[Rfam]
RNA: Group II catalytic intron D1-D4-3
Organism: Methyloprofundus sedimenti
RNA sequence: AAUAUCGUGAGGUAUUGGCUGAAGGAAGUACAACGCAAAGUUGCGGGGUGACGAACAGGAACUGGAUAUAAGGUGUGACGUAUUCGAGACCAGUGGGCACGUGACCAUGAAGUCUUCCAUUCACGCAAGGGAUACGUUUUAUAAAUCCAGCAUCUACGCAACGAAAGCUCUGUGC
Numbered sequence: 001a002a003u004a005u006c007g008u009g010a011g012g013u014a015u016u017g018g019c020u021g022a023a024g025g026a027a028g029u030a031c032a033a034c035g036c037a038a039a040g041u042u043g044c045g046g047g048g049u050g051a052c053g054a055a056c057a058g059g060a061a062c063u064g065g066a067u068a069u070a071a072g073g074u075g076u077g078a079c080g081u082a083u084u085c086g087a088g089a090c091c092a093g094u095g096g097g098c099a100c101g102u103g104a105c106c107a108u109g110a111a112g113u114c115u116u117c118c119a120u121u122c123a124c125g126c127a128a129g130g131g132a133u134a135c136g137u138u139u140u141a142u143a144a145a146u147c148c149a150g151c152a153u154c155u156a157c158g159c160a161a162c163g164a165a166a167g168c169u170c171u172g173u174g175c
Stems, first nucleotide, its partner, number of pairs: 001016006028175005035168002040162006046155005062150006073142003077138007087115004093108004